[Rfam]
Record summary
A member of the RNA family "Singlet oxygen resistance RNA X" from Octadecabacter arcticus, 75 nucleotides long. Its family is annotated with response to photooxidative stress in the Gene Ontology. Lineage of the source: Bacteria > Pseudomonadota > Alphaproteobacteria > Octadecabacter > Octadecabacter arcticus.

RNA sequence: AUACAGCAUAAAGCGGUUUUGUCGCUUUAUAUCUCCCUGUUGGACUUCGCCGGGCCUUUGUGCCCGGCAUUUCUU
Numbered sequence: 001a002u003a004c005a006g007c008a009u010a011a012a013g014c015g016g017u018u019u020u021g022u023c024g025c026u027u028u029a030u031a032u033c034u035c036c037c038u039g040u041u042g043g044a045c046u047u048c049g050c051c052g053g054g055c056c057u058u059u060g061u062g063c064c065c066g067g068c069a070u071u072u073c074u075u
Base pairs, nucleotide, nucleotide: 008030009029010028011027012026013025014024049068050067051066052065053064054063055062
Rfam 15.1 lists 528 matches to the family in 356 species. The family's RNA type in Rfam is small RNA. The match comes from Rfam's covariance-model search (50 bits). From the family's description: SorX (RSs2461)like SorY is a singlet oxygen induced sRNA that counteracts oxidative stress by targeting mRNA for a transporter in Rhodobacter. It also has an impact on resistance against organic hydroperoxides.